RNA sequence: AAUCGGGCAAUUAAAAUCCGCACAUAUGUCGUCACAUUUCUCUGGGUGCCUUUUUUAAAGGUGGAGGAUGCGGACAUAUGGAGGCCUAAC
Numbered sequence: 001a002a003u004c005g006g007g008c009a010a011u012u013a014a015a016a017u018c019c020g021c022a023c024a025u026a027u028g029u030c031g032u033c034a035c036a037u038u039u040c041u042c043u044g045g046g047u048g049c050c051u052u053u054u055u056u057a058a059a060g061g062u063g064g065a066g067g068a069u070g071c072g073g074a075c076a077u078a079u080g081g082a083g084g085c086c087u088a089a090c
Stems, first nucleotide, its partner, number of pairs: 023080008035070003039067005048062005

The record is a 90-nucleotide sequence from Acinetobacter sp. TGL-Y2, which matches "t44 RNA" in Rfam. NCBI's taxonomy places the organism under Bacteria, Pseudomonadota, Gammaproteobacteria, Moraxellaceae, Acinetobacter. A search with the family's covariance model found it, with a score of 65 bits. For this family Rfam cites "Transcriptome analysis of Escherichia coli using high-density oligonucleotide probe arrays" (Tjaden et al., Nucleic Acids Res, 2002). About the family: This family consists of a number of bacterial RNA genes of between 135 and 170 bases in length. The t44 gene has been identified in several species of enteric bacteria but homologs have also been identified in Pseudomonas and Coxiella species. The t44 gene is found between the map and rpsB genes in all species in the full alignment apart from Shigella flexneri. The function of this RNA is unknown.